[Rfam]
The record is a 146-nucleotide RNA sequence from Leucobacter chromiisoli, which matches "FMN riboswitch aptamer (RFN element)" in Rfam. Its family is annotated with FMN binding in the Gene Ontology. The match comes from Rfam's covariance-model search (80 bits).
RNA sequence: AGCGUGUUCCGGGGUCGGUGUGAUUCCGAACCGGCGGUGACAGUCCGCGAACCCCGCGCUGCGGGGCCGAUCCGGUGGAAUUCCGGAACCGACGGUGAUGGGACGCGGCCCCGGCCGCUCUCUAGUCCGGAUGAGAGGAACGCGGG
Numbered sequence: 001a002g003c004g005u006g007u008u009c010c011g012g013g014g015u016c017g018g019u020g021u022g023a024u025u026c027c028g029a030a031c032c033g034g035c036g037g038u039g040a041c042a043g044u045c046c047g048c049g050a051a052c053c054c055c056g057c058g059c060u061g062c063g064g065g066g067c068c069g070a071u072c073c074g075g076u077g078g079a080a081u082u083c084c085g086g087a088a089c090c091g092a093c094g095g096u097g098a099u100g101g102g103a104c105g106c107g108g109c110c111c112c113g114g115c116c117g118c119u120c121u122c123u124a125g126u127c128c129g130g131a132u133g134a135g136a137g138g139a140a141c142g143c144g145g146g
Stems, first nucleotide, its partner, number of pairs: 003144008016028003032091002034048004043089002052066002071087005093129003